[Rfam]
RNA: Bacterial large subunit ribosomal RNA, nucleotides 15 to 614
RNA sequence: GGGUCCAUGGUGGAUGCCUAGGAACUGUCUGGCGAAGAAGGCCGUGGUAAGCUGCGAAAAGCAACGGGGAGGAGCACACAUCCUGAGAUCCGUUGAUUGCCGAAUGGGGUAACCCGGCUGGGGUCAUGCUCAGUCAUCCAUGCCUGAAUAUAUAGGGUAUGGAAGCGAUACCCAGGGAACUGAACCAUCUAAGUACCUGGAGGAACAGAAAUCAACCGAGAUUCCCAAAGUAGCGGCGAGCGAAAUGGGAACAGCCCAAACCGAUAUAGUGUAAGCAGUGCUGCGUUGCUAUGUCGGGGUUGUAGGAUUAUCGAGAGCAGUUGGCACUAACUGCUGCAGAGUCAAAAAUGCACAUUAUAGCGGAACGCUUCUGGAAAGGGCGAUCAGAGAGGGUGAUAAUCCCGUAUGCGAAAUGAUGUGCACUCUGUUGGAUAAUUCCUGAGUACGGCGGGACACGAGAAAUCCUGCUGGAAUCUGGGGAGACCACUCUCCAAGGCUAAAUACACGACAGUUACCGAUAGUGAAGCAGUACCGUGAGGGAAAGGUGAAAAGAACCCCGGUGAGGGGAGUGAAAUAGAACCUGAAACCAUGGACUUACAA
Number, nucleotide and partner (000 for none) at each position: 001g596002g595003g594004u593005c592006c591007a590008u589009g588010g587011u000012g000013g000014a000015u000016g581017c545018c544019u000020a000021g516022g515023a513024a512025c511026u510027g509028u508029c507030u505031g504032g166033c165034g000035a000036a000037g000038a000039a000040g101041g100042c099043c056044g055045u054046g000047g000048u000049a000050a000051g000052c000053u000054g045055c044056g043057a000058a000059a000060a000061g000062c095063a094064a093065c092066g091067g090068g089069g000070a000071g083072g082073a081074g000075c000076a000077c000078a000079c000080a000081u073082c072083c071084u000085g000086a000087g000088a000089u068090c067091c066092g065093u064094u063095g062096a000097u000098u000099g042100c041101c040102g000103a000104a000105u000106g115107g114108g113109g000110u000111a000112a000113c108114c107115c106116g135117g134118c133119u132120g131121g130122g129123g000124u000125c000126a000127u000128g000129c122130u121131c120132a119133g118134u117135c116136a000137u163138c162139c161140a160141u159142g158143c157144c156145u155146g000147a000148a000149u000150a000151u000152a000153u000154a000155g145156g144157g143158u142159a141160u140161g139162g138163a137164a000165g033166c032167g000168a000169u000170a000171c202172c200173c199174a198175g197176g196177g000178a000179a000180c000181u000182g189183a188184a000185c000186c000187a000188u183189c182190u000191a000192a000193g000194u000195a000196c176197c175198u174199g173200g172201a000202g171203g000204a000205a000206c000207a000208g000209a000210a000211a000212u219213c218214a000215a000216c000217c000218g213219a212220g000221a000222u501223u250224c249225c248226c247227a246228a000229a000230g000231u000232a000233g241234c240235g000236g000237c000238g000239a000240g234241c233242g000243a000244a000245a000246u227247g226248g225249g224250a223251a000252c000253a498254g497255c496256c495257c000258a000259a000260a000261c297262c296263g295264a294265u293266a292267u291268a290269g289270u288271g287272u000273a000274a000275g000276c000277a000278g000279u000280g000281c000282u000283g000284c000285g000286u000287u271288g270289c269290u268291a267292u266293g265294u264295c263296g262297g261298g000299g000300u000301u000302g000303u000304a440305g439306g438307a000308u000309u434310a433311u432312c431313g000314a000315g000316a000317g000318c000319a000320g000321u000322u000323g000324g000325c000326a000327c000328u000329a000330a000331c000332u000333g000334c000335u000336g000337c000338a000339g000340a000341g000342u000343c000344a000345a000346a000347a424348a000349u422350g421351c420352a419353c418354a417355u416356u415357a414358u413359a000360g409361c408362g407363g000364a000365a000366c382367g381368c380369u379370u000371c378372u000373g000374g000375a000376a000377a000378g371379g369380g368381c367382g366383a000384u000385c389386a000387g000388a000389g385390a000391g403392g402393g401394u000395g000396a000397u000398a000399a000400u000401c393402c392403c391404g000405u000406a000407u362408g361409c360410g000411a000412a000413a358414u357415g356416a355417u354418g353419u352420g351421c350422a349423c000424u347425c000426u000427g000428u000429u000430g000431g312432a311433u310434a309435a000436u000437u000438c306439c305440u304441g000442a000443g000444u000445a000446c470447g469448g468449c467450g466451g465452g464453a463454c000455a000456c000457g000458a000459g000460a000461a000462a000463u453464c452465c451466u450467g449468c448469u447470g446471g000472a000473a000474u000475c000476u000477g492478g491479g490480g489481a488482g000483a000484c000485c000486a000487c000488u481489c480490u479491c478492c477493a000494a000495g256496g255497c254498u253499a000500a000501a222502u000503a000504c031505a030506c000507g029508a028509c027510a026511g025512u024513u023514a000515c022516c021517g000518a000519u000520a000521g000522u000523g000524a000525a000526g000527c000528a000529g000530u000531a000532c539533c538534g000535u000536g000537a000538g533539g532540g000541a000542a000543a000544g018545g017546u000547g000548a000549a000550a000551a000552g000553a000554a000555c567556c566557c565558c564559g000560g000561u000562g000563a000564g558565g557566g556567g555568a000569g000570u000571g000572a000573a000574a000575u000576a000577g000578a000579a000580c000581c016582u000583g000584a000585a000586a000587c010588c009589a008590u007591g006592g005593a004594c003595u002596u001597a000598c000599a000600a000